RNA sequence: GAAGAAGAGUUCCAAAGAGAUCGCAUGAUCCAAUAAAAACCCAUUAGAAUUGUAGCUGCUAAUUAAUUAACAAUUAAUCGGAUCAAUGCGAUCCCUUUGGAGUUCUUC
Numbered sequence: 001g002a003a004g005a006a007g008a009g010u011u012c013c014a015a016a017g018a019g020a021u022c023g024c025a026u027g028a029u030c031c032a033a034u035a036a037a038a039a040c041c042c043a044u045u046a047g048a049a050u051u052g053u054a055g056c057u058g059c060u061a062a063u064u065a066a067u068u069a070a071c072a073a074u075u076a077a078u079c080g081g082a083u084c085a086a087u088g089c090g091a092u093c094c095c096u097u098u099g100g101a102g103u104u105c106u107u108c
Stems, first nucleotide, its partner, number of pairs: 004108003008104010019093003023089003026085006
Record summary:
Rfam assigns this 108-nucleotide RNA sequence from Macleaya cordata to the family "mir-393 microRNA precursor family". Rfam 15.1 lists 1,052 matches to the family in 221 species. Its family is annotated with miRNA-mediated post-transcriptional gene silencing and RISC complex in the Gene Ontology.